This 61-nucleotide RNA from Vagococcus fluvialis belongs to the Rfam family "Ribosomal protein L13 leader". About the family: This family is a putative r-protein leader autoregulatory structure found in B. subtilis and other low-GC Gram-positive bacteria. It is located in the 5' untranslated regions of mRNAs encoding the L13-S9 (rplM-rpsI) ribosomal protein operon.
RNA sequence: GGUAUUGUUUGACCACAACAUGGUGAGCCCCGGAAACUUAUUAUGUAAUGCCAAACAUCAA
Numbered sequence: 001g002g003u004a005u006u007g008u009u010u011g012a013c014c015a016c017a018a019c020a021u022g023g024u025g026a027g028c029c030c031c032g033g034a035a036a037c038u039u040a041u042u043a044u045g046u047a048a049u050g051c052c053a054a055a056c057a058u059c060a061a
Stems, first nucleotide, its partner, number of pairs: 006057006019045009

The match comes from Rfam's covariance-model search (46 bits).
A reference for the family is Zengel and Lindahl (1994), "Diverse mechanisms for regulating ribosomal protein synthesis in Escherichia coli", Prog Nucleic Acid Res Mol Biol.